[Rfam]
RNA sequence: GGCGGCGGACGACCGCUGCCGUGCUCGCUUAAGACAACGGGACGGCCCGU
Numbered sequence: 001g002g003c004g005g006c007g008g009a010c011g012a013c014c015g016c017u018g019c020c021g022u023g024c025u026c027g028c029u030u031a032a033g034a035c036a037a038c039g040g041g042a043c044g045g046c047c048c049g050u
Stems, first nucleotide, its partner, number of pairs: 001020008037050005

The family of this 50-nucleotide sequence from Saccharospirillum sp. MSK14-1 is "Guanidine-II riboswitch aptamer (mini-ykkC)". Simpler in structure and has fewer highly conserved nucleotide positions than the ykkC-yxkD leader. Despite this each of its two stem-loop structures directly bind free guanidine. For this family Rfam cites "The Structure of the Guanidine-II Riboswitch" (Huang et al., Cell Chem Biol, 2017). It scores 42 bits against the family's covariance model. The family's consensus secondary structure is taken from published work.